[Rfam]
RNA sequence: UAUCCUGGAACGCUGAAUUGCGGUGUGCAGCCGUAAGCGGGGGACCCAAUUUCCCGGGGUGAAUCUUGCCGGUUAUACCGGUGGGUAGGGCUAGACGUGGCCCGAAUCCGUCAGCUAACUUCGUAAGCGUGAAGGGAAUACCG
Number, nucleotide and partner (000 for none) at each position: 001u000002a000003u000004c000005c000006u000007g000008g000009a000010a000011c129012g128013c127014u126015g000016a000017a000018u036019u035020g034021c033022g032023g031024u000025g000026u000027g000028c000029a000030g000031c023032c022033g021034u020035a019036a018037g124038c123039g122040g121041g120042g119043g000044a000045c000046c000047c056048a000049a000050u000051u000052u000053c000054c000055c000056g047057g109058g108059g107060u000061g000062a000063a000064u000065c085066u084067u083068g082069c081070c080071g000072g000073u000074u000075a000076u000077a000078c000079c000080g070081g069082u068083g067084g066085g065086u000087a000088g103089g102090g101091c100092u000093a000094g000095a000096c000097g000098u000099g000100g091101c090102c089103c088104g000105a000106a000107u059108c058109c057110g000111u000112c000113a000114g000115c000116u000117a000118a000119c042120u041121u040122c039123g038124u037125a000126a014127g013128c012129g011130u000131g000132a000133a000134g000135g000136g000137a000138a000139u000140a000141c000142c000143g000
Rfam assigns this 143-nucleotide RNA from Neomoorella thermoacetica to the family "c-di-AMP riboswitch aptamer (ydaO/yuaA leader)". Taxonomically the source falls in Neomoorella thermoacetica (Bacteria, Bacillota, Neomoorellales, Neomoorellaceae). The sequence is in the family's curated seed alignment.